[Rfam]
RNA sequence: GCCCUGUGGUUGCUGGAGGCUGGUUCGUGAUGCAGUGCUUCAGUUGGUAGCAAUGGGCCAACAGUGAUGCUGUGAUUGAUGCAUGGGGGCUGUGAGCCAUGAGCAGCCUCCAUAGCCCGCUCACAGCUACACAC
Number, nucleotide and partner (000 for none) at each position: 001g058002c057003c056004c055005u000006g000007u049008g048009g000010u046011u000012g044013c043014u042015g041016g040017a039018g000019g036020c035021u034022g033023g000024u000025u000026c000027g000028u000029g000030a000031u000032g000033c022034a021035g020036u019037g000038c000039u017040u016041c015042a014043g013044u012045u000046g010047g000048u008049a007050g000051c000052a000053a000054u000055g004056g003057g002058c001059c000060a000061a000062c000063a000064g000065u000066g000067a000068u000069g000070c126071u000072g124073u123074g122075a121076u000077u119078g000079a000080u000081g116082c115083a113084u112085g111086g110087g000088g108089g107090c106091u105092g104093u103094g000095a000096g000097c000098c000099a000100u000101g000102a000103g093104c092105a091106g090107c089108c088109u000110c086111c085112a084113u083114a000115g082116c081117c000118c000119g077120c000121u075122c074123a073124c072125a000126g070127c000128u000129a000130c000131a000132c000133a000134c000
Small nucleolar RNA SNORA84: a 134-nucleotide RNA from Bucco capensis. The source organism's lineage runs through Eukaryota, Craniata, Dinosauria, Aves and Bucco. A reference for the family is Marker et al. (2002), "Experimental RNomics: identification of 140 candidates for small non-messenger RNAs in the plant Arabidopsis thaliana", Curr Biol. The base pairs follow the family's consensus structure, which was predicted with WAR. The family's RNA type in Rfam is H/ACA-box small nucleolar RNA. Gene Ontology terms of the family: RNA processing and nucleolus.